[Rfam]
RNA sequence: GCCACACUUAAGCAGCACAGCAAUAUUGGGGUUCUUUUACCAUCACCCAAUAUUUACGUGCUGCUAAUGCGAAAC
Numbered sequence: 001g002c003c004a005c006a007c008u009u010a011a012g013c014a015g016c017a018c019a020g021c022a023a024u025a026u027u028g029g030g031g032u033u034c035u036u037u038u039a040c041c042a043u044c045a046c047c048c049a050a051u052a053u054u055u056a057c058g059u060g061c062u063g064c065u066a067a068u069g070c071g072a073a074a075c
Base pairs, nucleotide, nucleotide: 001075005071007069010068011065012064013063014062015061016060017059018058020055022054023053024052025051026050027049028048029047
Dot-bracket structure: (...(.(..(((((((((.(.((((((((.................)))))))))..))))))))..)).)...)
Rfam assigns this 75-nucleotide sequence from Leptobrachium leishanense to the family "mir-16 microRNA precursor family". The organism belongs to Leptobrachium, within Eukaryota. The family has 14 seed sequences and 4,705 matches in Rfam 15.1. A reference for the family is Calin et al. (2002), "Frequent deletions and down-regulation of micro- RNA genes miR15 and miR16 at 13q14 in chronic lymphocytic leukemia", Proc Natl Acad Sci U S A. Its family is annotated with miRNA-mediated post-transcriptional gene silencing and RISC complex in the Gene Ontology.